Rfam assigns this 134-nucleotide RNA sequence from Neptuniibacter caesariensis to the family "RtT RNA".
The literature on the family includes a 1991 paper in Nucleic Acids Res by Bosl and Kersten, "A novel RNA product of the tyrT operon of Escherichia coli".
The family's consensus secondary structure is taken from published work.
Gene Ontology term of the family: cellular response to amino acid starvation.
Rfam's curators write: This family represents a bacterial cis-regulatory element known as RtT RNA. The exact function of RtT is unknown although it is thought that it may be involved in changing the cellular response in relation to amino acid starvation.
RNA sequence: AGUGUAGGAAUUAACUGGCAGAUGAUAACUGCCGAAGGCGUUCGAGCCGAGCGAAGCGAGACCACAUCGGAGCUUGCGACGAUAGCCCCGAAGGGGAAGGUGCGAAGCGCCGUAUAAUCUGCCUAGUCCUACCA
Numbered sequence: 001a002g003u004g005u006a007g008g009a010a011u012u013a014a015c016u017g018g019c020a021g022a023u024g025a026u027a028a029c030u031g032c033c034g035a036a037g038g039c040g041u042u043c044g045a046g047c048c049g050a051g052c053g054a055a056g057c058g059a060g061a062c063c064a065c066a067u068c069g070g071a072g073c074u075u076g077c078g079a080c081g082a083u084a085g086c087c088c089c090g091a092a093g094g095g096g097a098a099g100g101u102g103c104g105a106a107g108c109g110c111c112g113u114a115u116a117a118u119c120u121g122c123c124u125a126g127u128c129c130u131a132c133c134a
Stems, first nucleotide, its partner, number of pairs: 017123005023117001033095001041092004048058002065085001066083004